[Rfam]
Rfam assigns this 103-nucleotide RNA sequence from Caloramator fervidus to the family "SAM riboswitch aptamer (S box leader)".
Nucleotides: 103
Base pairs, nucleotide, nucleotide: 001103002102003101004100005099006098007097008096013041015040016039017038021031022030023029025074026073027072028071042066043065044064045063047062048061049059050058051057070095075092076091077090078089079088080087
Number, partner (000 for none) and nucleotide at each position: 001103u002102c003101c004100u005099u006098a007097u008096c009000a010000a011000g012000a013041g014000a015040g016039g017038u018000g019000g020000a021031g022030g023029g024000a025074c026073g027072g028071g029023c030022c031021c032000g033000a034000u035000g036000a037000a038017a039016c040015c041013c042066g043065g044064c045063a046000a047062c048061c049059u050058g051057c052000g053000g054000a055000a056000a057051g058050c059049a060000a061048g062047g063045u064044g065043c066042c067000a068000a069000u070095u071028c072027c073026u074025g075092c076091a077090g078089a079088a080087u081000g082000g083000a084000a085000a086000c087080a088079u089078u090077c091076u092075g093000g094000g095070a096008g097007a098006u099005g100004a101003g102002g103001a

NCBI's taxonomy places the organism under Bacteria, Bacillota, Eubacteriales, Clostridiaceae, Caloramator. It scores 94 bits against the family's covariance model. Its family is annotated with regulation of gene expression in the Gene Ontology.